[Rfam]
RNA sequence: GAUGUGCUAGCGGGAGAGACUGCCGCCAGGCAGCGCCGAAGGAGCAACCGCCCCGGAAACUCUCAGGCAAAAGGACCGCUACCACAGC
Numbered sequence: 001g002a003u004g005u006g007c008u009a010g011c012g013g014g015a016g017a018g019a020c021u022g023c024c025g026c027c028a029g030g031c032a033g034c035g036c037c038g039a040a041g042g043a044g045c046a047a048c049c050g051c052c053c054c055g056g057a058a059a060c061u062c063u064c065a066g067g068c069a070a071a072a073g074g075a076c077c078g079c080u081a082c083c084a085c086a087g088c
Stems, first nucleotide, its partner, number of pairs: 006083001008081006020033004035068003038064002042062003048056002
RNA: Glycine riboswitch aptamer
Organism: Pseudomonas sp. BAY1663